RNA sequence: ACCUAUGGUAGAGGCGCUGUUAGUUAAUAGUACUUAUCCGUAGCCGGCGGGCAAUGAUGGUUAAGGAAAGGAACUGCAGCCGAAGGAAAUCGUUCGGCGGAAUGGUUUCCUGGUUCUGCAUAGAAUAUAUGCAGGACUGUCACUAUUUCAAAUAGUGGAGAGCUACAAAGGUA
Numbered sequence: 001a002c003c004u005a006u007g008g009u010a011g012a013g014g015c016g017c018u019g020u021u022a023g024u025u026a027a028u029a030g031u032a033c034u035u036a037u038c039c040g041u042a043g044c045c046g047g048c049g050g051g052c053a054a055u056g057a058u059g060g061u062u063a064a065g066g067a068a069a070g071g072a073a074c075u076g077c078a079g080c081c082g083a084a085g086g087a088a089a090u091c092g093u094u095c096g097g098c099g100g101a102a103u104g105g106u107u108u109c110c111u112g113g114u115u116c117u118g119c120a121u122a123g124a125a126u127a128u129a130u131g132c133a134g135g136a137c138u139g140u141c142a143c144u145a146u147u148u149c150a151a152a153u154a155g156u157g158g159a160g161a162g163c164u165a166c167a168a169a170g171g172u173a
Stems, first nucleotide, its partner, number of pairs: 006168001008166004016080005023074003033065004038060003084111012112138011140158007
Annotation: The family of this 173-nucleotide RNA from Fonticella tunisiensis is "Lysine riboswitch aptamer". The base pairs follow the family's consensus structure, which is taken from published work. A search with the family's covariance model found it, with a score of 118 bits. NCBI's taxonomy places the organism under Bacteria, Clostridia, Eubacteriales, Clostridiaceae, Fonticella.